RNA sequence: GAUUGAGGACAAAAAGAGCCAAACCCAAGCAUCACAAGAUCCUGUAGUCUUACCUGAUACAUGAGCUCCAAAGUUCCGAAA
Dot-bracket structure: ............................(.(((...((((......)))).....))).).....................

The record is an 81-nucleotide RNA sequence from Ochotona princeps, which matches "Small nucleolar RNA U2-19" in Rfam. Rfam's curators put it in the seed alignment. By type it is a C/D-box small nucleolar RNA. Lineage of the source: Eukaryota > Craniata > Euteleostomi > Mammalia > Ochotona.